[Rfam]
Rfam assigns this 74-nucleotide sequence from Crocodylus porosus to the family "Mammalian CPEB3 ribozyme". Lineage of the source: Eukaryota > Deuterostomia > Gnathostomata > Euteleostomi > Crocodylus. The match comes from Rfam's covariance-model search (36 bits).
Nucleotides: 074
Stems, first nucleotide, its partner, number of pairs: 015042004021074001023072005028036001046063006
Number, partner (000 for none) and nucleotide at each position: 001000g002000g003000u004000u005000g006000c007000a008000a009000g010000u011000u012000u013000g014000a015042g016041g017040c018039c019000a020000u021074g022000a023072c024071a025070g026069a027068a028036g029000c030000u031000a032000a033000g034000g035000u036028c037000a038000a039018g040017g041016c042015c043000u044000g045000u046063c047062a048061g049060a050059u051058u052000g053000c054000a055000a056000g057000g058051a059050a060049u061048c062047u063046g064000c065000a066000a067000a068027u069026u070025c071024u072023g073000c074021u
Source information:
Rfam's curators write: The mammalian CPEB3 ribozyme is a self cleaving RNA located in the second intron of the CPEB3 gene which belongs to a family of genes regulating messenger RNA polyadenylation.